[Rfam]
RNA sequence: GAAUAGCACUGUUUUGCUAUUUCCGACCAAUAACAUAAUGAUACGUGGAAAAAUUAUCCCACAAGUCAUUGUGUUAUUGGUCAGGCAUAGCAAAAAGUGUUAUUC
Number, nucleotide and partner (000 for none) at each position: 001g000002a104003a103004u102005a101006g000007c000008a000009c000010u000011g000012u095013u094014u093015u092016g091017c090018u089019a088020u087021u000022u085023c084024c000025g082026a081027c080028c079029a078030a077031u076032a075033a074034c073035a072036u071037a070038a069039u068040g067041a066042u065043a000044c000045g062046u061047g060048g059049a000050a057051a000052a000053a000054u000055u000056a000057u050058c000059c048060c047061a046062c045063a000064a000065g042066u041067c040068a039069u038070u037071g036072u035073g034074u033075u032076a031077u030078u029079g028080g027081u026082c025083a000084g023085g022086c000087a020088u019089a018090g017091c016092a015093a014094a013095a012096a000097g000098u000099g000100u000101u005102a004103u003104u002105c000
This 105-nucleotide RNA sequence from Prunus yedoensis belongs to the Rfam family "MIR6274 microRNA precursor family".
The family's consensus secondary structure was predicted with RNAalifold.
Gene Ontology terms of the family: RISC complex and miRNA-mediated post-transcriptional gene silencing.
Lineage of the source: Eukaryota > Tracheophyta > eudicotyledons > Prunus > Prunus yedoensis.
Rfam 15.1 lists 342 matches to the family in 8 species.